About this RNA
This 93-nucleotide sequence belongs to the Rfam family "tRNA". The base pairs follow the family's consensus structure, which is taken from published work. Gene Ontology term of the family: triplet codon-amino acid adaptor activity. The family's RNA type in Rfam is transfer RNA.
[Rfam]
RNA sequence: GGAGAGAUGGCUGAGUGGUUGAUAGCUCCGGUCUUGAAAACCGGCAUAGUUCUUUAUUCAGAACUAUCGAGGGUUCGAAUCCCUCUCUCUCCU
Numbered sequence: 001g002g003a004g005a006g007a008u009g010g011c012u013g014a015g016u017g018g019u020u021g022a023u024a025g026c027u028c029c030g031g032u033c034u035u036g037a038a039a040a041c042c043g044g045c046a047u048a049g050u051u052c053u054u055u056a057u058u059c060a061g062a063a064c065u066a067u068c069g070a071g072g073g074u075u076c077g078a079a080u081c082c083c084u085c086u087c088u089c090u091c092c093u
Stems, first nucleotide, its partner, number of pairs: 001092007010026004028044005069085005